[Rfam]
RNA: mir-981 microRNA precursor family
Organism: Rhynchophorus ferrugineus
RNA sequence: UUCCAUGAGUUCCAGGUUUCGAGACAAGCGUAACCGUUUUCAGUACUGGUUCGUUGUCGACGAAACCUGCAAUUAUUGGGA
Number, nucleotide and partner (000 for none) at each position: 001u081002u080003c079004c078005a077006u000007g000008a000009g000010u000011u000012c000013c069014a068015g067016g066017u065018u064019u063020c062021g061022a000023g000024a000025c000026a000027a000028g000029c000030g052031u000032a051033a050034c049035c048036g000037u000038u000039u000040u000041c000042a000043g000044u000045a000046c000047u000048g035049g034050u033051u032052c030053g000054u000055u000056g000057u000058c000059g000060a000061c021062g020063a019064a018065a017066c016067c015068u014069g013070c000071a000072a000073u000074u000075a000076u000077u005078g004079g003080g002081a001